[Rfam]
RNA sequence: AUAGUGGCUAGACUGGAGGGUUAGGAGUCCUCUGUAAGCACAAAUCUCCUAUGGUGUGGUCGAAAUUUAGGAGGCGGCUUUUGGAUUUAAUUAAGGCCUAAAAGGCUGAUAUAGAAGCUUCGUCCUGCAGGAUCAAUGGUGAUAGAAGGAUUACUGGAGGGUAAUUCUUAACUGUCUUUAUUGUGGGAACGUGUCAGGCCUGGAAAGGAGCAGCUCUACCAUUUACAGCUGAUGCUUGUAGAACCGCGAGGUGGAGUUAGUCUUUUAGAUAACCUUGAUUGAUGAAAAUUGUCCACUCCUUUAUGUGCCGUUUG
Numbered sequence: 001a002u003a004g005u006g007g008c009u010a011g012a013c014u015g016g017a018g019g020g021u022u023a024g025g026a027g028u029c030c031u032c033u034g035u036a037a038g039c040a041c042a043a044a045u046c047u048c049c050u051a052u053g054g055u056g057u058g059g060u061c062g063a064a065a066u067u068u069a070g071g072a073g074g075c076g077g078c079u080u081u082u083g084g085a086u087u088u089a090a091u092u093a094a095g096g097c098c099u100a101a102a103a104g105g106c107u108g109a110u111a112u113a114g115a116a117g118c119u120u121c122g123u124c125c126u127g128c129a130g131g132a133u134c135a136a137u138g139g140u141g142a143u144a145g146a147a148g149g150a151u152u153a154c155u156g157g158a159g160g161g162u163a164a165u166u167c168u169u170a171a172c173u174g175u176c177u178u179u180a181u182u183g184u185g186g187g188a189a190c191g192u193g194u195c196a197g198g199c200c201u202g203g204a205a206a207g208g209a210g211c212a213g214c215u216c217u218a219c220c221a222u223u224u225a226c227a228g229c230u231g232a233u234g235c236u237u238g239u240a241g242a243a244c245c246g247c248g249a250g251g252u253g254g255a256g257u258u259a260g261u262c263u264u265u266u267a268g269a270u271a272a273c274c275u276u277g278a279u280u281g282a283u284g285a286a287a288a289u290u291g292u293c294c295a296c297u298c299c300u301u302u303a304u305g306u307g308c309c310g311u312u313u314g
Stems, first nucleotide, its partner, number of pairs: 003312006011061004015033007038057004065304002069300005076293003080288003087282010098268013112254001117252007125241007132233004137227002139178001141176005146169010183222004191216001193214002199208003

The record is a 314-nucleotide sequence from Methanobrevibacter ruminantium, which matches "Archaeal signal recognition particle RNA" in Rfam. A reference for the family is Rosenblad et al. (2009), "Kinship in the SRP RNA family", RNA Biol. Its Rfam clan is "SRP clan". The organism belongs to Methanobrevibacter ruminantium, within Archaea. Pairs were carried over by alignment from the consensus structure, which is taken from published work.